The record is a 74-nucleotide RNA from Aureimonas sp. AU20, which matches "tRNA" in Rfam. The organism belongs to Aureimonas, within Bacteria. Transfer RNA (tRNA) molecules are approximately 80 nucleotides in length.
RNA sequence: GGCAGUGUAGCUCAGCCGGUUAGAGCGUCGGAUUCAUAACCCGAAGGUCGGUGGUUCAAGUCCACCCACCGCCA
Numbered sequence: 001g002g003c004a005g006u007g008u009a010g011c012u013c014a015g016c017c018g019g020u021u022a023g024a025g026c027g028u029c030g031g032a033u034u035c036a037u038a039a040c041c042c043g044a045a046g047g048u049c050g051g052u053g054g055u056u057c058a059a060g061u062c063c064a065c066c067c068a069c070c071g072c073c074a
Stems, first nucleotide, its partner, number of pairs: 001073003005069003010026004028044004050066005